[Rfam]
RNA sequence: UAUUAAGGGCCAUAGGUGGAUGCCUUGGCUGGUAGAGGCGAUGAAAGACGUAAUAGGCUGCGAUAAGCCUCGGGGAGCUGCCAAUGAGCUUUGAUCCGGGGAUUUCUGAAUGGGGCAACCCAGCAUGGUGCGAAUCAUGUUACCCUUCGGGGGGCGAACCUAGGGAAGUGAAACAUCUCAGUACCUAGAGGAAGAGAAAUCAAACGAGAUUCCCAGAGUAGCGGCGAGCGAAAUGGGAUUAGGGCGGUUAGCGAUAGCAUAUUUAUUAGCAGAAGAGUUUGGAAAGACUCGGCAUAGAGGGUGAUACUCCCGUAAGCGAAAAUAUUUAUGUGGUACUAGGUUAACGAACGAGUAGGUCGGGACACGUGUUAUCUUGACUGAAUAUGGGGGGACCACCCUCCAACCCUAAAUACUACUACCAGACCGAUAGCGAACUAGUACCGUGAGGGAAAGGUGAAAAGGACCGCGGUGAGCGGAGUGAAAUAGAACCUGAAACCUAUGGCUUACAAU
Numbered sequence: 001u002a003u004u005a006a007g008g009g010c011c012a013u014a015g016g017u018g019g020a021u022g023c024c025u026u027g028g029c030u031g032g033u034a035g036a037g038g039c040g041a042u043g044a045a046a047g048a049c050g051u052a053a054u055a056g057g058c059u060g061c062g063a064u065a066a067g068c069c070u071c072g073g074g075g076a077g078c079u080g081c082c083a084a085u086g087a088g089c090u091u092u093g094a095u096c097c098g099g100g101g102a103u104u105u106c107u108g109a110a111u112g113g114g115g116c117a118a119c120c121c122a123g124c125a126u127g128g129u130g131c132g133a134a135u136c137a138u139g140u141u142a143c144c145c146u147u148c149g150g151g152g153g154g155c156g157a158a159c160c161u162a163g164g165g166a167a168g169u170g171a172a173a174c175a176u177c178u179c180a181g182u183a184c185c186u187a188g189a190g191g192a193a194g195a196g197a198a199a200u201c202a203a204a205c206g207a208g209a210u211u212c213c214c215a216g217a218g219u220a221g222c223g224g225c226g227a228g229c230g231a232a233a234u235g236g237g238a239u240u241a242g243g244g245c246g247g248u249u250a251g252c253g254a255u256a257g258c259a260u261a262u263u264u265a266u267u268a269g270c271a272g273a274a275g276a277g278u279u280u281g282g283a284a285a286g287a288c289u290c291g292g293c294a295u296a297g298a299g300g301g302u303g304a305u306a307c308u309c310c311c312g313u314a315a316g317c318g319a320a321a322a323u324a325u326u327u328a329u330g331u332g333g334u335a336c337u338a339g340g341u342u343a344a345c346g347a348a349c350g351a352g353u354a355g356g357u358c359g360g361g362a363c364a365c366g367u368g369u370u371a372u373c374u375u376g377a378c379u380g381a382a383u384a385u386g387g388g389g390g391g392a393c394c395a396c397c398c399u400c401c402a403a404c405c406c407u408a409a410a411u412a413c414u415a416c417u418a419c420c421a422g423a424c425c426g427a428u429a430g431c432g433a434a435c436u437a438g439u440a441c442c443g444u445g446a447g448g449g450a451a452a453g454g455u456g457a458a459a460a461g462g463a464c465c466g467c468g469g470u471g472a473g474c475g476g477a478g479u480g481a482a483a484u485a486g487a488a489c490c491u492g493a494a495a496c497c498u499a500u501g502g503c504u505u506a507c508a509a510u
Stems, first nucleotide, its partner, number of pairs: 007505010022490001023454002027425002029422007036414002038155002046107003049062003068101007077089003112121003122141007143152003159190001160188005170177002200207002210410001211238005221229002241407004248344005255333001257331005264324004269317002275290005293297001299311003355379008386401005441448002464476004
RNA: Bacterial large subunit ribosomal RNA, nucleotides 9 to 518
Organism: Sulfurimonas aquatica